[Rfam]
EGFOA RNA: a 109-nucleotide sequence. The family's consensus secondary structure is taken from published work.

RNA sequence: GUAUCCCUAGAUGAUAAAACACCGCACAUGGCUCGUAAGAGCGGUUAAAUUAGCAAGUAAUGCAAAUUACGCGAGGUAACGCAUGGCCUAGGCUCGUUAGUAGCUAAUU
Numbered sequence: 001g002u003a004u005c006c007c008u009a010g011a012u013g014a015u016a017a018a019a020c021a022c023c024g025c026a027c028a029u030g031g032c033u034c035g036u037a038a039g040a041g042c043g044g045u046u047a048a049a050u051u052a053g054c055a056a057g058u059a060a061u062g063c064a065a066a067u068u069a070c071g072c073g074a075g076g077u078a079a080c081g082c083a084u085g086g087c088c089u090a091g092g093c094u095c096g097u098u099a100g101u102a103g104c105u106a107a108u109u
Stems, first nucleotide, its partner, number of pairs: 006092005024087002027085004031042004048109007057070004071097005